[Rfam]
RNA sequence: UAAUUUAUUUGGAACAUAUCCUUUUUAUUUAUUUAUGAAAGAUUCAUUCAUGACUACUAGAAUUAUCUAUUAUUACAAGUUCAACUAUAUUAAAUUCUUUUUUUAAAAGAAAAAAAGAGCAUGUUGAAAGUUAGAAGGAUGGAAA
Numbered sequence: 001u002a003a004u005u006u007a008u009u010u011g012g013a014a015c016a017u018a019u020c021c022u023u024u025u026u027a028u029u030u031a032u033u034u035a036u037g038a039a040a041g042a043u044u045c046a047u048u049c050a051u052g053a054c055u056a057c058u059a060g061a062a063u064u065a066u067c068u069a070u071u072a073u074u075a076c077a078a079g080u081u082c083a084a085c086u087a088u089a090u091u092a093a094a095u096u097c098u099u100u101u102u103u104u105a106a107a108a109g110a111a112a113a114a115a116a117g118a119g120c121a122u123g124u125u126g127a128a129a130g131u132u133a134g135a136a137g138g139a140u141g142g143a144a145a
Stems, first nucleotide, its partner, number of pairs: 004143004008137002014131002019126001026123003030118001032116003
The record is a 145-nucleotide RNA from Populus tomentosa, which matches "MIR480 microRNA precursor family" in Rfam. The family has 69 seed sequences and 3,070 matches in Rfam 15.1. Rfam links the family to the GO terms RISC complex and miRNA-mediated post-transcriptional gene silencing. The literature on the family includes a 2005 paper in Plant Cell by Lu et al., "Novel and mechanical stress-responsive MicroRNAs in Populus trichocarpa that are absent from Arabidopsis".